[Rfam]
RNA sequence: UAGUAACCCUGAUGGAAGCGAUAGCUUCUUAAACUUGUUUAAGAACUAAAGCGUACAGCAGGAAUAAGG
Numbered sequence: 001u002a003g004u005a006a007c008c009c010u011g012a013u014g015g016a017a018g019c020g021a022u023a024g025c026u027u028c029u030u031a032a033a034c035u036u037g038u039u040u041a042a043g044a045a046c047u048a049a050a051g052c053g054u055a056c057a058g059c060a061g062g063a064a065u066a067a068g069g
Base pairs, nucleotide, nucleotide: 009061010060011059013057014056018052019051023047024046027044028043029042030041031040032039033038